[Rfam]
RNA: Purine riboswitch aptamer
Nucleotides: 103
Stems, first nucleotide, its partner, number of pairs: 018089008029048007057079001059075005
Number, partner (000 for none) and nucleotide at each position: 001000u002000g003000g004000g005000u006000u007000a008000a009000c010000a011000a012000a013000a014000u015000a016000a017000g018089c019088u020087c021086u022085u023084g024083u025082a026000u027000a028000a029048g030047c031046u032045c033044a034043g035042a036000g037000a038000u039000c040000g041000g042035u043034u044033u045032g046031a047030g048029c049000g050000u051000u052000u053000c054000g055000a056000c057079c058000a059075g060074g061073c062072g063071a064000c065000c066000g067000u068000a069000a070000a071063u072062u073061g074060c075059c076000c077000c078000a079057g080000g081000c082025u083024a084023c085022a086021a087020g088019a089018g090000g091000u092000a093000u094000a095000g096000g097000a098000u099000a100000g101000u102000u103000u